Background: The family of this 68-nucleotide RNA from Escherichia coli is "int-alpA RNA". Rfam classes the family as a small RNA.
[Rfam]
RNA sequence: CUUGAGGCUAUUCCGACAGGGAGAAAAGCGAUCUACGCCUGACCGCCUGCCUCAGCAAUCAUCCAGGC
Numbered sequence: 001c002u003u004g005a006g007g008c009u010a011u012u013c014c015g016a017c018a019g020g021g022a023g024a025a026a027a028g029c030g031a032u033c034u035a036c037g038c039c040u041g042a043c044c045g046c047c048u049g050c051c052u053c054a055g056c057a058a059u060c061a062u063c064c065a066g067g068c
Base pairs, nucleotide, nucleotide: 002055003054004053005052006051007050008049011022012021013020014019028046029045030044032042037068038067039066040065041064